[Rfam]
RNA sequence: UAACUGCCAUAACUCCGAGCUCUACGCGCUAAGUCGAACCAAAGAUAAGCUUCUAGAGCCAGUGACAAUUUGUCACAAGGGCAUAAUUGGAAAUGAUUGUGCCUCCCGUGUUUGGAAAGGUGUUCCGUGGCGCAACAA
Numbered sequence: 001u002a003a004c005u006g007c008c009a010u011a012a013c014u015c016c017g018a019g020c021u022c023u024a025c026g027c028g029c030u031a032a033g034u035c036g037a038a039c040c041a042a043a044g045a046u047a048a049g050c051u052u053c054u055a056g057a058g059c060c061a062g063u064g065a066c067a068a069u070u071u072g073u074c075a076c077a078a079g080g081g082c083a084u085a086a087u088u089g090g091a092a093a094u095g096a097u098u099g100u101g102c103c104u105c106c107c108g109u110g111u112u113u114g115g116a117a118a119g120g121u122g123u124u125c126c127g128u129g130g131c132g133c134a135a136c137a138a
Stems, first nucleotide, its partner, number of pairs: 011124003015120002019059006026052001028050002033046003062076005079104011105115002
The record is a 138-nucleotide RNA sequence from Vibrio mediterranei, which matches "Molybdenum/Tungsten riboswitch aptamer (Moco RNA motif)" in Rfam. Lineage of the source: Bacteria > Pseudomonadota > Gammaproteobacteria > Vibrio > Vibrio mediterranei. Pairs were carried over by alignment from the consensus structure, which is taken from published work. Its family is annotated with tungstate binding, regulation of gene expression and molybdenum ion binding in the Gene Ontology.